[Rfam]
RNA sequence: CGUCGGUUUGCGGGAGAGAGCAGCGACGCUGCCGCCGAAGGGGAAAUCGCCCGAAAUCUCUCAGGCAAAAGAACCGUAGACCGAAA
Numbered sequence: 001c002g003u004c005g006g007u008u009u010g011c012g013g014g015a016g017a018g019a020g021c022a023g024c025g026a027c028g029c030u031g032c033c034g035c036c037g038a039a040g041g042g043g044a045a046a047u048c049g050c051c052c053g054a055a056a057u058c059u060c061u062c063a064g065g066c067a068a069a070a071g072a073a074c075c076g077u078a079g080a081c082c083g084a085a086a
Stems, first nucleotide, its partner, number of pairs: 006081008020032004034066003037062002041060003047054002
RNA: Glycine riboswitch aptamer
Organism: Aerobium aerolatum